[Rfam]
RNA: BsrC
RNA sequence: UUUAACCUAAACGACGUAAGCCCUACCUCUCUUACAUCCUUACGGCUCCGAAGCCGAUCCAGUGUGAAUAAGUUUUCAAAAUAUAUU
Numbered sequence: 001u002u003u004a005a006c007c008u009a010a011a012c013g014a015c016g017u018a019a020g021c022c023c024u025a026c027c028u029c030u031c032u033u034a035c036a037u038c039c040u041u042a043c044g045g046c047u048c049c050g051a052a053g054c055c056g057a058u059c060c061a062g063u064g065u066g067a068a069u070a071a072g073u074u075u076u077c078a079a080a081a082u083a084u085a086u087u
Stems, first nucleotide, its partner, number of pairs: 035066002039062002043056005